[Rfam]
RNA sequence: CAUUGCAAUGAUGGUUAUCUUUCGGGUCUGAAUUUUGUUGUGGAUAGUUCCCAAUGAUCUGAGCAAUG
Numbered sequence: 001c002a003u004u005g006c007a008a009u010g011a012u013g014g015u016u017a018u019c020u021u022u023c024g025g026g027u028c029u030g031a032a033u034u035u036u037g038u039u040g041u042g043g044a045u046a047g048u049u050c051c052c053a054a055u056g057a058u059c060u061g062a063g064c065a066a067u068g
Base pairs, nucleotide, nucleotide: 001068002067003066004065005064006063
RNA: Small nucleolar RNA SNORD2
Organism: Zootermopsis nevadensis